[Rfam]
RNA sequence: UUCUUAAAAUACCGCCAUACUUAAUGAUUGGUAAUUCCUUACUAGUUAAUGAGUUUCAGACUUAAGUAUGAUGUUGUGUUUGCAUAUAGUUCGGGAAACCGAACUUGAGUAACAAUUUGUUACUCAUUUACUUCCUGUAUAUUAUUAAACCGAUUUGGUUAAAUCGCCGCUCCAUUGAGCGGCGUUUUUUUCA
Numbered sequence: 001u002u003c004u005u006a007a008a009a010u011a012c013c014g015c016c017a018u019a020c021u022u023a024a025u026g027a028u029u030g031g032u033a034a035u036u037c038c039u040u041a042c043u044a045g046u047u048a049a050u051g052a053g054u055u056u057c058a059g060a061c062u063u064a065a066g067u068a069u070g071a072u073g074u075u076g077u078g079u080u081u082g083c084a085u086a087u088a089g090u091u092c093g094g095g096a097a098a099c100c101g102a103a104c105u106u107g108a109g110u111a112a113c114a115a116u117u118u119g120u121u122a123c124u125c126a127u128u129u130a131c132u133u134c135c136u137g138u139a140u141a142u143u144a145u146u147a148a149a150c151c152g153a154u155u156u157g158g159u160u161a162a163a164u165c166g167c168c169g170c171u172c173c174a175u176u177g178a179g180c181g182g183c184g185u186u187u188u189u190u191u192c193a
Stems, first nucleotide, its partner, number of pairs: 009062001012059001023054001025048010088105007108124006141159003163186001165184006
Dot-bracket structure: ........(..(..........(.((((((((((....)))))))))).....)....)..).........................(((((((....)))))))..((((((.....))))))................(((.............)))...(.((((((........)))))).).......